The record is a 90-nucleotide RNA sequence from Camellia sinensis, which matches "Small nucleolar RNA snoR26" in Rfam. On this family, see Brown et al., RNA 2001: "Multiple snoRNA gene clusters from Arabidopsis". Rfam 15.1 lists 611 matches to the family in 220 species. Rfam classes the family as a C/D-box small nucleolar RNA. The match comes from Rfam's covariance-model search (90 bits).

RNA sequence: UGAGCAUCAGUGAUGAGUAAACCUUUUAUUAUCCUUGCACUUUGAUUGCUAGUGAAGAAAACUAUGGGGACUAUUGACUUUGAGAUGCUU
Numbered sequence: 001u002g003a004g005c006a007u008c009a010g011u012g013a014u015g016a017g018u019a020a021a022c023c024u025u026u027u028a029u030u031a032u033c034c035u036u037g038c039a040c041u042u043u044g045a046u047u048g049c050u051a052g053u054g055a056a057g058a059a060a061a062c063u064a065u066g067g068g069g070a071c072u073a074u075u076g077a078c079u080u081u082g083a084g085a086u087g088c089u090u
Stems, first nucleotide, its partner, number of pairs: 002090007